[Rfam]
Rfam assigns this 77-nucleotide RNA sequence from Alligator sinensis to the family "Mammalian CPEB3 ribozyme". Its family is annotated with RNA nuclease activity in the Gene Ontology. The mammalian CPEB3 ribozyme is a self cleaving RNA located in the second intron of the CPEB3 gene which belongs to a family of genes regulating messenger RNA polyadenylation.
RNA sequence: AGUUGACAACCUAGAGGCCUUAGCACAAGUGCUCACAGCACGGCUUGUCAGAUUUCAAUGAAUGUGUGAAUGCUGCU
Numbered sequence: 001a002g003u004u005g006a007c008a009a010c011c012u013a014g015a016g017g018c019c020u021u022a023g024c025a026c027a028a029g030u031g032c033u034c035a036c037a038g039c040a041c042g043g044c045u046u047g048u049c050a051g052a053u054u055u056c057a058a059u060g061a062a063u064g065u066g067u068g069a070a071u072g073c074u075g076c077u
Base pairs, nucleotide, nucleotide: 013045017044018043019042022077023076024075025074028071029041030040031039049066050065052063053062054061055060